[Rfam]
RNA sequence: GUCGCCGUACAGGCGGAGGCUUCAAACCACCUACUGCUGCUGCGUUUAAGAGGCGUGGUAGUGAGCGAGCUAGGAAAAGGCCGGACUCGAUUUGGUCAGGU
Numbered sequence: 001g002u003c004g005c006c007g008u009a010c011a012g013g014c015g016g017a018g019g020c021u022u023c024a025a026a027c028c029a030c031c032u033a034c035u036g037c038u039g040c041u042g043c044g045u046u047u048a049a050g051a052g053g054c055g056u057g058g059u060a061g062u063g064a065g066c067g068a069g070c071u072a073g074g075a076a077a078a079g080g081c082c083g084g085a086c087u088c089g090a091u092u093u094g095g096u097c098a099g100g101u
Base pairs, nucleotide, nucleotide: 001020002019003018005016006015007014008013028100030074031073032072033071035068036062037061039059040058041057043055044054045053046052079097080096081095082094083093084092
RNA: Group II catalytic intron D1-D4-2
Organism: Nitrosomonas sp. Nm58